[Rfam]
RNA sequence: GGAUGUUCUGAAGACCUGCUCACUAGGCUAUGUACGGAGGACGUUGGUUUCUCACGGGCCCUUGUGCCCGCCUAGGGGAAAGUCCCCGGACCGCCGGCAGAGAGUGCCGGGCGCUUCCAGCGCCCUGGCCUACCCCCGUCCUCACGCAGUACUCCGCCAAGACGCCCUUGGGCCGAGCGGGUGAGUGGGGGCAGGCGCUCGUCACGGCCAUAGACACGCAGGUAGUGCGCGGCAGGCGCGCUAACAGAACGGGGCUCACUCUCAGGUCAUC
Numbered sequence: 001g002g003a004u005g006u007u008c009u010g011a012a013g014a015c016c017u018g019c020u021c022a023c024u025a026g027g028c029u030a031u032g033u034a035c036g037g038a039g040g041a042c043g044u045u046g047g048u049u050u051c052u053c054a055c056g057g058g059c060c061c062u063u064g065u066g067c068c069c070g071c072c073u074a075g076g077g078g079a080a081a082g083u084c085c086c087c088g089g090a091c092c093g094c095c096g097g098c099a100g101a102g103a104g105u106g107c108c109g110g111g112c113g114c115u116u117c118c119a120g121c122g123c124c125c126u127g128g129c130c131u132a133c134c135c136c137c138g139u140c141c142u143c144a145c146g147c148a149g150u151a152c153u154c155c156g157c158c159a160a161g162a163c164g165c166c167c168u169u170g171g172g173c174c175g176a177g178c179g180g181g182u183g184a185g186u187g188g189g190g191g192c193a194g195g196c197g198c199u200c201g202u203c204a205c206g207g208c209c210a211u212a213g214a215c216a217c218g219c220a221g222g223u224a225g226u227g228c229g230c231g232g233c234a235g236g237c238g239c240g241c242u243a244a245c246a247g248a249a250c251g252g253g254g255c256u257c258a259c260u261c262u263c264a265g266g267u268c269a270u271c
Stems, first nucleotide, its partner, number of pairs: 002271004007266005014223006023075006037053005081256002084254004096108004109125006127196001129194001133191006142184004154180004164173003225241006
The family of this 271-nucleotide sequence from Upupa epops is "RNase MRP". The organism belongs to Upupa, within Eukaryota. It is annotated as a ribozyme. The match comes from Rfam's covariance-model search (166 bits).